The family of this 45-nucleotide RNA sequence from Luteolibacter yonseiensis is "Acido-Lenti-1 RNA".
RNA sequence: CCCGGGACGUUGUCCCGGGCUAUCCCAUUCCGCACCUUUGGUGCU
Numbered sequence: 001c002c003c004g005g006g007a008c009g010u011u012g013u014c015c016c017g018g019g020c021u022a023u024c025c026c027a028u029u030c031c032g033c034a035c036c037u038u039u040g041g042u043g044c045u
Base pairs, nucleotide, nucleotide: 001019002018003017004016005015006014007013008012032044033043034042035041036040